[Rfam]
RNA sequence: UCUCUUACCUGGCAUAGGAGAUACAAUGAUCACCAAGGUGGUUCUCCCAGGGCUAGGGUCAUCCUUUACACUCUUGGUGUGCUGACCCCUGCGAUUUUCCCAAAUGCGGGAAACUCGACUACUUGUGGUAGUUGGGGACAUUUCCACCACAUUCCCUCUA
Numbered sequence: 001u002c003u004c005u006u007a008c009c010u011g012g013c014a015u016a017g018g019a020g021a022u023a024c025a026a027u028g029a030u031c032a033c034c035a036a037g038g039u040g041g042u043u044c045u046c047c048c049a050g051g052g053c054u055a056g057g058g059u060c061a062u063c064c065u066u067u068a069c070a071c072u073c074u075u076g077g078u079g080u081g082c083u084g085a086c087c088c089c090u091g092c093g094a095u096u097u098u099c100c101c102a103a104a105u106g107c108g109g110g111a112a113a114c115u116c117g118a119c120u121a122c123u124u125g126u127g128g129u130a131g132u133u134g135g136g137g138a139c140a141u142u143u144c145c146a147c148c149a150c151a152u153u154c155c156c157u158c159u160a
Stems, first nucleotide, its partner, number of pairs: 012122001014120001017047005023042002026039002049090004056083002060079004092117003095113003099109002134158004142151001
RNA: U1 spliceosomal RNA